[Rfam]
Nucleotides: 107
Base pairs, nucleotide, nucleotide: 001107002106003105004104005103006102007101008100013042014041015040016039017038021031022030023029025079026078027077028076043071044070045069046068048067049066051063052062053061075099081095082094083093084092
Number, partner (000 for none) and nucleotide at each position: 001107u002106u003105c004104u005103u006102a007101u008100c009000u010000a011000g012000a013042g014041a015040g016039g017038u018000g019000g020000a021031g022030g023029g024000a025079c026078u027077g028076g029023c030022c031021c032000u033000u034000a035000g036000a037000a038017a039016c040015c041014u042013c043071g044070g045069c046068a047000a048067c049066a050000g051063g052062c053061u054000u055000u056000u057000a058000u059000u060000u061053a062052g063051c064000a065000c066049u067048g068046u069045g070044c071043c072000a073000a074000u075099u076028c077027c078026a079025g080000u081095a082094g083093c084092c085000a086000a087000c088000u089000a090000c091000a092084g093083g094082c095081u096000u097000g098000a099075a100008g101007a102006u103005a104004a105003g106002a107001a

Shown here is a 107-nucleotide RNA from Gracilibacillus halophilus, a member of the family "SAM riboswitch aptamer (S box leader)". The SAM riboswitch is found upstream of a number of genes which code for proteins involved in methionine or cysteine biosynthesis in Gram-positive bacteria.